Description: The family of this 119-nucleotide sequence from a Rhodocyclaceae bacterium is "Manganese Mn2+ riboswitch aptamer (yybP-ykoY)". A search with the family's covariance model found it, with a score of 64 bits. The source organism's lineage runs through Bacteria, Pseudomonadati, Betaproteobacteria, Rhodocyclales and Rhodocyclaceae.

[Rfam]
RNA sequence: GCCCCCGUCAUCGGGGAGUAGCCGCCCGGCAUCGCGACCGGGGUCUGCAUCAACAGACUUGUCCGGCAAGGACAUGGUGCAGGCAGCAGGCAUGCGCGCAUUGCGCCGUGCACCGCCUG
Numbered sequence: 001g002c003c004c005c006c007g008u009c010a011u012c013g014g015g016g017a018g019u020a021g022c023c024g025c026c027c028g029g030c031a032u033c034g035c036g037a038c039c040g041g042g043g044u045c046u047g048c049a050u051c052a053a054c055a056g057a058c059u060u061g062u063c064c065g066g067c068a069a070g071g072a073c074a075u076g077g078u079g080c081a082g083g084c085a086g087c088a089g090g091c092a093u094g095c096g097c098g099c100a101u102u103g104c105g106c107c108g109u110g111c112a113c114c115g116c117c118u119g
Stems, first nucleotide, its partner, number of pairs: 026041003043084010060074005087119005